[Rfam]
RNA sequence: GCGUCUUUCGCGGGAGAGACUUGGUUCCAUGUAAUGGAGCACGGCGCCGAAGGAGCAACCGCCCCGGAAACUCUCAGGCAAAUGGACCGCGAAUUGGCA
Numbered sequence: 001g002c003g004u005c006u007u008u009c010g011c012g013g014g015a016g017a018g019a020c021u022u023g024g025u026u027c028c029a030u031g032u033a034a035u036g037g038a039g040c041a042c043g044g045c046g047c048c049g050a051a052g053g054a055g056c057a058a059c060c061g062c063c064c065c066g067g068a069a070a071c072u073c074u075c076a077g078g079c080a081a082a083u084g085g086a087c088c089g090c091g092a093a094u095u096g097g098c099a
Base pairs, nucleotide, nucleotide: 007093008092009091010090011089012088013087020044021043022041023040046079047078048077049075050074053073054072055071059067060066
Dot-bracket structure: ......(((((((......((((................)).)).(((((..(((...((.....))...))))).))).......)))))))......